Rfam assigns this 33-nucleotide sequence to the family "DUF805b RNA".

[Rfam]
RNA sequence: AAAAGGGUAGCUGAAAACUUAAUAGAGUAGGCA
Numbered sequence: 001a002a003a004a005g006g007g008u009a010g011c012u013g014a015a016a017a018c019u020u021a022a023u024a025g026a027g028u029a030g031g032c033a
Stems, first nucleotide, its partner, number of pairs: 003020003010032003
Rfam's curators put it in the seed alignment.